[Rfam]
RNA sequence: GGGUGGGGGGGCGGUAAGGAAAUCACCUCCUUUUCUGGAAGGACACUCCCUUCUGAUGGCGAAUGGGAACUCCCUUUCUCAGCAAUGGGCUGGUGACCUCCCCAUAAGCCAGUGGGAGUACUACAGCCACUGCACGGUCCGUGAAAGAAAGACUCCCACAGC
Numbered sequence: 001g002g003g004u005g006g007g008g009g010g011g012c013g014g015u016a017a018g019g020a021a022a023u024c025a026c027c028u029c030c031u032u033u034u035c036u037g038g039a040a041g042g043a044c045a046c047u048c049c050c051u052u053c054u055g056a057u058g059g060c061g062a063a064u065g066g067g068a069a070c071u072c073c074c075u076u077u078c079u080c081a082g083c084a085a086u087g088g089g090c091u092g093g094u095g096a097c098c099u100c101c102c103c104a105u106a107a108g109c110c111a112g113u114g115g116g117a118g119u120a121c122u123a124c125a126g127c128c129a130c131u132g133c134a135c136g137g138u139c140c141g142u143g144a145a146a147g148a149a150a151g152a153c154u155c156c157c158a159c160a161g162c
Stems, first nucleotide, its partner, number of pairs: 002162001004160002008157004015148001017051003026042003030038002052144002059080001061077003065074003082135001083132002086129001091126001093124001095121001101116001
Rfam assigns this 162-nucleotide RNA sequence from Jaculus jaculus to the family "FGF-1 internal ribosome entry site (IRES)". Lineage of the source: Eukaryota > Metazoa > Bilateria > Craniata > Jaculus. From the family's description: This family represents the FGF-1 internal ribosome entry site (IRES).